This 401-nucleotide part of an RNA from Ignicoccus hospitalis belongs to the Rfam family "Archaeal large subunit ribosomal RNA". Pairs were carried over by alignment from the consensus structure, which is taken from published work. Taxonomically the source falls in Ignicoccus hospitalis (Archaea, Thermoproteati, Thermoprotei, Desulfurococcaceae). Its family is annotated with ribosome and structural constituent of ribosome in the Gene Ontology.

RNA sequence: GGUAGUAACAGCGAAGAGGGGUGAGAAUCCCCUCCGCCGGAAAGGGCAAGGGUUCCCCGGCAACUGUCAUAGGCCGGGGGUGAGUCGGUCCUAACCCGCCUCCCAACUGGAGCGCGGGGAAAGGGAAGCCGGUUAAUAUUCCGGCACCGCGGGGGUAGGUGCGGCAACGCAAGCCCCACCUCCGACGCCUCGGGGUAGGCGGACCGGGGCUGUCGCCCCGGCUAACCGUCCGAAGGCCCUGGAGGGCCGUAACGGCGAGAAGGGGCCGAAGGCGGGAAGGGGCCCCCGUAUGGGGGCUUCCGCCGAUCCCUGGGGCCCAUGAAAAGGGGGUGGGGAACGAUCCCCCGCGCCCGUACCGAGAACCGACGCAGGUGCCCCUGGGUGAGAAGCCCAAGGCGGCU
Number, nucleotide and partner (000 for none) at each position: 001g000002g000003u000004a000005g000006u000007a000008a000009c000010a000011g000012c000013g000014a000015a000016g034017a033018g032019g031020g030021g029022u000023g000024a000025g000026a000027a000028u000029c021030c020031c019032c018033u017034c016035c398036g397037c396038c395039g000040g000041a000042a000043a000044g377045g376046g375047c374048a000049a000050g357051g356052g000053u000054u000055c079056c078057c077058c076059g075060g074061c000062a000063a000064c072065u071066g000067u000068c000069a000070u000071a065072g064073g000074c060075c059076g058077g057078g056079g055080g000081u000082g000083a000084g000085u000086c353087g352088g351089u000090c124091c123092u000093a000094a000095c118096c117097c116098g115099c114100c000101u111102c110103c109104c000105a000106a000107c000108u000109g103110g102111a101112g000113c000114g099115c098116g097117g096118g095119g000120a000121a000122a000123g091124g090125g000126a000127a000128g145129c144130c143131g142132g141133u000134u000135a000136a000137u000138a000139u000140u000141c132142c131143g130144g129145c128146a000147c000148c349149g348150c347151g346152g345153g344154g343155g342156u000157a000158g000159g000160u000161g000162c000163g000164g000165c000166a000167a000168c000169g000170c000171a000172a000173g000174c000175c000176c000177c000178a000179c000180c000181u328182c327183c326184g000185a000186c000187g316188c315189c314190u313191c312192g311193g310194g309195g308196u000197a000198g304199g303200c302201g301202g300203a000204c221205c220206g219207g218208g217209g000210c000211u000212g000213u000214c000215g000216c000217c208218c207219c206220g205221g204222c000223u000224a000225a000226c275227c274228g273229u272230c000231c000232g000233a000234a000235g000236g266237c265238c264239c263240u262241g000242g000243a000244g000245g000246g256247c255248c254249g000250u000251a000252a000253c000254g248255g247256c246257g000258a000259g000260a000261a000262g240263g239264g238265g237266c236267c000268g000269a000270a000271g000272g229273c228274g227275g226276g000277a000278a000279g000280g000281g000282g000283c000284c000285c000286c000287c292288g000289u000290a000291u000292g287293g000294g000295g000296g000297c000298u000299u000300c202301c201302g200303c199304c198305g000306a000307u000308c195309c194310c193311u192312g191313g190314g189315g188316c187317c000318c000319a000320u000321g000322a000323a000324a000325a000326g183327g182328g181329g000330g000331u000332g000333g000334g000335g000336a000337a000338c000339g000340a000341u000342c155343c154344c153345c152346c151347g150348c149349g148350c000351c088352c087353g086354u000355a000356c051357c050358g000359a000360g000361a000362a000363c372364c371365g000366a000367c000368g000369c000370a000371g364372g363373u000374g047375c046376c045377c044378c000379u393380g392381g391382g390383u000384g000385a000386g000387a000388a000389g000390c382391c381392c380393a379394a000395g038396g037397c036398g035399g000400c000401u000